[Rfam]
RNA sequence: GCAGGGCUGUGUGCACAGCGUCAGUCUGUGUCUAGUAAAGCAGCCGGCCUGCGUCUUGCUGGUUGACUGCUCUGCUCACACAAAUCCUGCUGGCCCAGAUAAUGCUGAGAUCAUAGUACUGGUCUAGUGAUGUCCGCCGGACUCUCCCACCACUGGCCAGCCUCCAAACUCUCCAACACGU
Numbered sequence: 001g002c003a004g005g006g007c008u009g010u011g012u013g014c015a016c017a018g019c020g021u022c023a024g025u026c027u028g029u030g031u032c033u034a035g036u037a038a039a040g041c042a043g044c045c046g047g048c049c050u051g052c053g054u055c056u057u058g059c060u061g062g063u064u065g066a067c068u069g070c071u072c073u074g075c076u077c078a079c080a081c082a083a084a085u086c087c088u089g090c091u092g093g094c095c096c097a098g099a100u101a102a103u104g105c106u107g108a109g110a111u112c113a114u115a116g117u118a119c120u121g122g123u124c125u126a127g128u129g130a131u132g133u134c135c136g137c138c139g140g141a142c143u144c145u146c147c148c149a150c151c152a153c154u155g156g157c158c159a160g161c162c163u164c165c166a167a168a169c170u171c172u173c174c175a176a177c178a179c180g181u
Base pairs, nucleotide, nucleotide: 013090014089015088029082030081031080033078035076036074037073039071040070041069043067045065046064047063051059052058107173108172109171110170119160120159121158122157123156124155126154127153128152129151132142133141134140
Small nucleolar RNA SNORA23: a 181-nucleotide RNA from Eleutherodactylus coqui. The family has 9 seed sequences and 1,092 matches in Rfam 15.1. It is annotated as an H/ACA-box small nucleolar RNA. The family's consensus secondary structure was predicted with RNAalifold. The members of this family belong to the H/ACA class of snoRNAs which are thought to guide the sites of modification of uridines to pseudouridines. This family includes human snoRNA ACA23 (SNORA23) and mouse snoMBI-1. ACA23 is predicted to guide the pseudouridylation of residue U3737 and U4331 of 28S rRNA. The literature on the family includes a 2001 paper in EMBO J by Huttenhofer et al., "RNomics: an experimental approach that identifies 201 candidates for novel, small, non-messenger RNAs in mouse". NCBI's taxonomy places the organism under Eukaryota, Dipnotetrapodomorpha, Neobatrachia, Eleutherodactylinae, Eleutherodactylus.